Shown here is a 102-nucleotide RNA sequence from Planococcus rifietoensis, a member of the family "Purine riboswitch aptamer". From the family's description: Riboswitches are metabolite binding domains within certain messenger RNAs that serve as precision sensors for their corresponding targets. The family's consensus secondary structure is taken from published work.

RNA sequence: AAUGAAAUUAAAUAAGCUUGUCGUAUAAAUUCAGGAAUAUGGCCUGAGAGUCUCUACCGGUUCACCGUAAAUGAUCCGACUACGAUUUUUUGUCCGCCUUAU
Number, nucleotide and partner (000 for none) at each position: 001a000002a000003u000004g000005a000006a000007a000008u000009u000010a000011a000012a000013u000014a000015a000016g000017c000018u000019u000020g086021u085022c084023g083024u082025a081026u000027a000028a000029a000030u048031u047032c046033a045034g044035g043036a000037a000038u000039a000040u000041g000042g000043c035044c034045u033046g032047a031048g030049a000050g000051u000052c000053u000054c000055u000056a000057c000058c078059g077060g076061u000062u074063c073064a072065c000066c000067g000068u000069a000070a000071a000072u064073g063074a062075u000076c060077c059078g058079a000080c000081u025082a024083c023084g022085a021086u020087u000088u000089u000090u000091u000092g000093u000094c000095c000096g000097c000098c000099u000100u000101a000102u000
Lineage of the source: Bacteria > Bacillati > Caryophanales > Caryophanaceae > Planococcus.